[Rfam]
A member of the RNA family "Alphaproteobacterial sRNA ar9" from Phyllobacterium myrsinacearum, 150 nucleotides long.
Lineage of the source: Bacteria > Pseudomonadati > Pseudomonadota > Alphaproteobacteria > Phyllobacterium.
The match comes from Rfam's covariance-model search (103 bits).
RNA sequence: AUAAUGAGAAAGUAAGAAUAAUUCUGCUUUCCAGCGCGGUCAAAGUCUUGGGAGGAUGUGACCUUUGGCGCGGUAAUACGCAGCCACCAUGCAAAUGGAAUAGGGUCAGACGCGAUCUAACAAUGCAAGGCGAAAGCCUUGCAUUUUUUU
Numbered sequence: 001a002u003a004a005u006g007a008g009a010a011a012g013u014a015a016g017a018a019u020a021a022u023u024c025u026g027c028u029u030u031c032c033a034g035c036g037c038g039g040u041c042a043a044a045g046u047c048u049u050g051g052g053a054g055g056a057u058g059u060g061a062c063c064u065u066u067g068g069c070g071c072g073g074u075a076a077u078a079c080g081c082a083g084c085c086a087c088c089a090u091g092c093a094a095a096u097g098g099a100a101u102a103g104g105g106u107c108a109g110a111c112g113c114g115a116u117c118u119a120a121c122a123a124u125g126c127a128a129g130g131c132g133a134a135a136g137c138c139u140u141g142c143a144u145u146u147u148u149u150u
Stems, first nucleotide, its partner, number of pairs: 001150001003148002009030006035114004045057004060107005067085003070081003087098003124143008